[Rfam]
RNA sequence: GGCCUGUGAUGUGAAAAAUUUGUCCGUACCAUCUGAUAUCUUUGAUGAUCCACAUUUGCUAAUGUAUCUCUGAGGCCC
Numbered sequence: 001g002g003c004c005u006g007u008g009a010u011g012u013g014a015a016a017a018a019u020u021u022g023u024c025c026g027u028a029c030c031a032u033c034u035g036a037u038a039u040c041u042u043u044g045a046u047g048a049u050c051c052a053c054a055u056u057u058g059c060u061a062a063u064g065u066a067u068c069u070c071u072g073a074g075g076c077c078c
Base pairs, nucleotide, nucleotide: 001077002076003075004074